RNA: Small nucleolar RNA snoR97
RNA sequence: AAAAUCUUAUUGAUUGAGGGUCUGAAAAACUCAUAUAUCUAGGGUGUUGUCAUCAGCUUCUUCUCUCGGAUUUGCAACGAGACUGGAGUUAAAUAACAGCACUAGAUUC
Numbered sequence: 001a002a003a004a005u006c007u008u009a010u011u012g013a014u015u016g017a018g019g020g021u022c023u024g025a026a027a028a029a030c031u032c033a034u035a036u037a038u039c040u041a042g043g044g045u046g047u048u049g050u051c052a053u054c055a056g057c058u059u060c061u062u063c064u065c066u067c068g069g070a071u072u073u074g075c076a077a078c079g080a081g082a083c084u085g086g087a088g089u090u091a092a093a094u095a096a097c098a099g100c101a102c103u104a105g106a107u108u109c
Stems, first nucleotide, its partner, number of pairs: 043103007055090006062082004